Shown here is a 72-nucleotide RNA sequence from Medicago truncatula, a member of the family "MIR2629 microRNA precursor family". The organism belongs to Medicago, within Eukaryota.

RNA sequence: AUAAUCAGUUCUCCUCGGCAGUUAACUGCAGCCGGAUUACAUAUUCUUCGGCAGUUAACUGCCGAGGGGUAU
Numbered sequence: 001a002u003a004a005u006c007a008g009u010u011c012u013c014c015u016c017g018g019c020a021g022u023u024a025a026c027u028g029c030a031g032c033c034g035g036a037u038u039a040c041a042u043a044u045u046c047u048u049c050g051g052c053a054g055u056u057a058a059c060u061g062c063c064g065a066g067g068g069g070u071a072u
Stems, first nucleotide, its partner, number of pairs: 012068002015065015